[Rfam]
RNA sequence: UCUAAUGAAGAAGCUUUUGGCUCGGGUUAUAUUUGAACUCAACAGUGUAUAAGACGAGCAAAAAGCUUGUUGGUUGGAGG
Numbered sequence: 001u002c003u004a005a006u007g008a009a010g011a012a013g014c015u016u017u018u019g020g021c022u023c024g025g026g027u028u029a030u031a032u033u034u035g036a037a038c039u040c041a042a043c044a045g046u047g048u049a050u051a052a053g054a055c056g057a058g059c060a061a062a063a064a065g066c067u068u069g070u071u072g073g074u075u076g077g078a079g080g
Stems, first nucleotide, its partner, number of pairs: 003076004008071002011068008020059001023056002027052006
Source information:
Shown here is an 80-nucleotide sequence from Ophiophagus hannah, a member of the family "mir-208 microRNA precursor family". Gene Ontology terms of the family: miRNA-mediated post-transcriptional gene silencing and RISC complex. The sequence is in the family's curated seed alignment.